Rfam assigns this 119-nucleotide RNA from Geobacter pickeringii to the family "Molybdenum/Tungsten riboswitch aptamer (Moco RNA motif)". On this family, see Weinberg et al., Nucleic Acids Res 2007: "Identification of 22 candidate structured RNAs in bacteria using the CMfinder comparative genomics pipeline". The source organism's lineage runs through Bacteria, Pseudomonadati, Desulfuromonadia, Geobacteraceae and Geobacter. The match comes from Rfam's covariance-model search (76 bits).
RNA sequence: UACAAGCACACUCUCCGAGCCUGCCGAGCCUAACAGGAGAUCCUCACGGCUCAAGGCCACUGGGUGCCGCCGGAAACGGCGGCGCCUCCCUUUCGGAAAGGAGAACAAUUAUGACUAAC
Numbered sequence: 001u002a003c004a005a006g007c008a009c010a011c012u013c014u015c016c017g018a019g020c021c022u023g024c025c026g027a028g029c030c031u032a033a034c035a036g037g038a039g040a041u042c043c044u045c046a047c048g049g050c051u052c053a054a055g056g057c058c059a060c061u062g063g064g065u066g067c068c069g070c071c072g073g074a075a076a077c078g079g080c081g082g083c084g085c086c087u088c089c090c091u092u093u094c095g096g097a098a099a100g101g102a103g104a105a106c107a108a109u110u111a112u113g114a115c116u117a118a119c
Base pairs, nucleotide, nucleotide: 003113004112006110012104013103014102015101016100019057020056021055022054026052027051028050029049030048035044036043037042062087063086064085065084066083067082068081069080070079071078072077088096089095